[Rfam]
RNA sequence: UCGGUCGGCCGGACGGUCGCCGCCACAGCCAGGAGUCAGGAGCCAGUCGUCAGGAGUCAGGAAACCGGACCUCGGUUCUGACCUCUGAUUCCUGACCCCUGACUCCUGGCUGUGGGGGAGGAAAGUCCGGGCUUCACAGGGCGCGGUGGUGGGUAACGCCCACCCCCGGCAAUGGUUCGCAUCCCGGUGCGGGCCGCCAACGGGCGGGAAAGUGCAACAGAAAGUAAACCGCCCGCUCCGUUUUCGGAACAACAUCCGCGUUCCGGAACGGUGCGGGUAAGGGUGAAACGGUGCGGGGCGAAAGCCCUUAAUGUAAGAGCGCACCAGCGGCGGGGUGACCCGUCGGCUCGGCAAACCCCACCGGAAGCAAGGCCAAGCAGAGGGCAGGAUCGGCUCGAUCCACUACGACCCUCGGGUAGGCUGCUCGAUCCCACGGGUAACCGUGGGGCUAGAUAAAUGACCGUCGCCGCCGCGAGGCGGGACAAAACCCGGCUUACAGGCCGACCGACCAA
Numbered sequence: 001u002c003g004g005u006c007g008g009c010c011g012g013a014c015g016g017u018c019g020c021c022g023c024c025a026c027a028g029c030c031a032g033g034a035g036u037c038a039g040g041a042g043c044c045a046g047u048c049g050u051c052a053g054g055a056g057u058c059a060g061g062a063a064a065c066c067g068g069a070c071c072u073c074g075g076u077u078c079u080g081a082c083c084u085c086u087g088a089u090u091c092c093u094g095a096c097c098c099c100u101g102a103c104u105c106c107u108g109g110c111u112g113u114g115g116g117g118g119a120g121g122a123a124a125g126u127c128c129g130g131g132c133u134u135c136a137c138a139g140g141g142c143g144c145g146g147u148g149g150u151g152g153g154u155a156a157c158g159c160c161c162a163c164c165c166c167c168g169g170c171a172a173u174g175g176u177u178c179g180c181a182u183c184c185c186g187g188u189g190c191g192g193g194c195c196g197c198c199a200a201c202g203g204g205c206g207g208g209a210a211a212g213u214g215c216a217a218c219a220g221a222a223a224g225u226a227a228a229c230c231g232c233c234c235g236c237u238c239c240g241u242u243u244u245c246g247g248a249a250c251a252a253c254a255u256c257c258g259c260g261u262u263c264c265g266g267a268a269c270g271g272u273g274c275g276g277g278u279a280a281g282g283g284u285g286a287a288a289c290g291g292u293g294c295g296g297g298g299c300g301a302a303a304g305c306c307c308u309u310a311a312u313g314u315a316a317g318a319g320c321g322c323a324c325c326a327g328c329g330g331c332g333g334g335g336u337g338a339c340c341c342g343u344c345g346g347c348u349c350g351g352c353a354a355a356c357c358c359c360a361c362c363g364g365a366a367g368c369a370a371g372g373c374c375a376a377g378c379a380g381a382g383g384g385c386a387g388g389a390u391c392g393g394c395u396c397g398a399u400c401c402a403c404u405a406c407g408a409c410c411c412u413c414g415g416g417u418a419g420g421c422u423g424c425u426c427g428a429u430c431c432c433a434c435g436g437g438u439a440a441c442c443g444u445g446g447g448g449c450u451a452g453a454u455a456a457a458u459g460a461c462c463g464u465c466g467c468c469g470c471c472g473c474g475a476g477g478c479g480g481g482a483c484a485a486a487a488c489c490c491g492g493c494u495u496a497c498a499g500g501c502c503g504a505c506c507g508a509c510c511a512a
Stems, first nucleotide, its partner, number of pairs: 001508010011497001012465007020118002023115018123495003127492005132367004139396004144363005149163005164206001165204004207358002212356002214352002229282002231278006238271007290325006327347001328345007371422004380413005387401005429448008